[Rfam]
RNA: mir-8/mir-141/mir-200 microRNA precursor family
RNA sequence: GAAGGCAUCUUACGUGACAGCAUUAGAUUUCAAUGACAAAAUUCUAAUACUGUCAGGUAAAGAUGUCAGC
Numbered sequence: 001g002a003a004g005g006c007a008u009c010u011u012a013c014g015u016g017a018c019a020g021c022a023u024u025a026g027a028u029u030u031c032a033a034u035g036a037c038a039a040a041a042u043u044c045u046a047a048u049a050c051u052g053u054c055a056g057g058u059a060a061a062g063a064u065g066u067c068a069g070c
Stems, first nucleotide, its partner, number of pairs: 004067006010060004015055006022048006